[Rfam]
RNA sequence: AAGGGAAACGCCGAAAACCCUGAAAAGAGUAGGCA
Number, nucleotide and partner (000 for none) at each position: 001a000002a021003g020004g019005g018006a000007a000008a000009c000010g034011c033012c032013g000014a000015a000016a000017a000018c005019c004020c003021u002022g000023a000024a000025a000026a000027g000028a000029g000030u000031a000032g012033g011034c010035a000
DUF805b RNA: a 35-nucleotide RNA sequence from Filimonas zeae. The source organism's lineage runs through Bacteria, Bacteroidota, Chitinophagia, Chitinophagales and Filimonas. The match comes from Rfam's covariance-model search (45 bits).